[Rfam]
A member of the RNA family "U7 small nuclear RNA" from Propithecus coquereli, 63 nucleotides long. Rfam's curators write: Animal histone pre-mRNAs are spliced by a different mechanism than nuclear pre-mRNAs and self-splicing introns. This processing involves the U7 snRNP, which contains only one RNA species: U7. The 5' end of U7 RNA is thought to base-pair to a conserved spacer element downstream of the cleavage site in histone pre-mRNA. This family contains a number of annotated U7 pseudogenes. The source organism's lineage runs through Eukaryota, Metazoa, Mammalia, Lemuriformes and Propithecus. A search with the family's covariance model found it, with a score of 56 bits.
RNA sequence: CAGUGUUAUAGCUCUUUUAGAAUUUGUUUAGCAGGUUUUCCAGUUUUUACCAAAAAUACCCCA
Dot-bracket structure: .................................((((((...((....))...))).)))...